[Rfam]
RNA sequence: UCCUGCCUGGCUCCCUGUAUGCCACAAGUAAACACCGAUCUCAUGAAGAAAUCGGACAGCUAGUGGCGUACAGAGUAGUCAAGCAUGA
Numbered sequence: 001u002c003c004u005g006c007c008u009g010g011c012u013c014c015c016u017g018u019a020u021g022c023c024a025c026a027a028g029u030a031a032a033c034a035c036c037g038a039u040c041u042c043a044u045g046a047a048g049a050a051a052u053c054g055g056a057c058a059g060c061u062a063g064u065g066g067c068g069u070a071c072a073g074a075g076u077a078g079u080c081a082a083g084c085a086u087g088a
Stems, first nucleotide, its partner, number of pairs: 001088002004085003008081005014075001016072009027061003
Dot-bracket structure: ((.(((.(((((.(.(((((((((..(((.............................)))..)))))))))..).))))).))).))
The record is an 88-nucleotide sequence from Raphanus sativus, which matches "mir-160 microRNA precursor family" in Rfam. Lineage of the source: Eukaryota > Embryophyta > Euphyllophyta > Spermatophyta > Raphanus. On this family, see Rhoades et al., Cell 2002: "Prediction of plant microRNA targets". Rfam 15.1 lists 1,502 matches to the family in 247 species.